[Rfam]
RNA sequence: GUGGCCCGGGCCGGGUGAUGGCCGCAGCUCAUCUAACCCUAUUUGGGUUGGGCGUAGGCGCGGGGCUUUUGUUUCUCGCGCGCUGUUUUUCUCGCUGGCUUUCAGCGGGCGGAAAAGCCUCGGCCUACUGCCGUCCACCAUCCGGUUCAGAGAAAAUAAAAAAAUGCCAGCGGCUGGUUAUCACCCCUCCCGGGAGCCUGCGCUGCUCGCCCGCUUAGCCCCCGCGCCCCGCCUGGAGGCCGCGGUCGGCCUGGGGCUUCUCCGGAGGUGCCCGCUGCCGCCGCGAAGAGUUGGGCUCUGUCAGCCGCGGUGUCCCGGGGGCCAAGGGCUAGGCUCUUCACGCAGGGAGAGUAACGGAGCGGGUCCCCGCGCGGUGCACCUCCCUGAGCUGUGGGACUUGCAUCGGGGGCUGGGCUCCGACACGU
Dot-bracket structure: ....((((((..((((((.(((((........................................(((((.......(((.(((((........[[[[[[[[[))))).)))..)))))...........................................]]].]]]]]]...))))).))))))..))))))..((((((......(((.((((.(((((((....((((........(((((.((((..(((...............)))...))))))))).((((.....)))).......)))).....)))))))...))))..)))......))))))..........((((.((((((......(((((..((((........))))..)))))..))))))..))))........
This 425-nucleotide RNA sequence from Myotis myotis belongs to the Rfam family "Vertebrate telomerase RNA". On this family, see Chen et al., Cell 2000: "Secondary structure of vertebrate telomerase RNA". The organism belongs to Myotis, within Eukaryota. Gene Ontology terms of the family: telomerase activity, telomere maintenance via telomerase and telomerase catalytic core complex. Telomerase is a ribonucleoprotein reverse transcriptase that synthesises telomeric DNA. Telomerase RNAs differ greatly in sequence and structure between vertebrates, ciliates and yeasts, but they share a 5' pseudoknot structure close to the template sequence. Vertebrate telomerase RNAs have a 3' H/ACA snoRNA-like domain. The family has 37 seed sequences and 523 matches in Rfam 15.1. Rfam classes the family as a non-coding RNA gene.